[Rfam]
RNA: terC RNA
RNA sequence: GCAUGGGUCCGGGCCCCUCUGGCGACCGAGGCGUUGGUCGUGAUGUCGGAACCCCUCG
Numbered sequence: 001g002c003a004u005g006g007g008u009c010c011g012g013g014c015c016c017c018u019c020u021g022g023c024g025a026c027c028g029a030g031g032c033g034u035u036g037g038u039c040g041u042g043a044u045g046u047c048g049g050a051a052c053c054c055c056u057c058g
Stems, first nucleotide, its partner, number of pairs: 006052001008050005022041008